[Rfam]
RNA sequence: GGAUAUCACUGUUUUGCUAUUCAUGGCUAAUAAUACAAUGAUACAUGGAAAAAUUAUCUCACAUGUCAUUGUGUUAUUGGUCGGGAAUAGCAAAAAGUAGUAUCC
Numbered sequence: 001g002g003a004u005a006u007c008a009c010u011g012u013u014u015u016g017c018u019a020u021u022c023a024u025g026g027c028u029a030a031u032a033a034u035a036c037a038a039u040g041a042u043a044c045a046u047g048g049a050a051a052a053a054u055u056a057u058c059u060c061a062c063a064u065g066u067c068a069u070u071g072u073g074u075u076a077u078u079g080g081u082c083g084g085g086a087a088u089a090g091c092a093a094a095a096a097g098u099a100g101u102a103u104c105c
Stems, first nucleotide, its partner, number of pairs: 002104004012095009022085001024083020046061003050057001
RNA: MIR6274 microRNA precursor family
Organism: Prunus armeniaca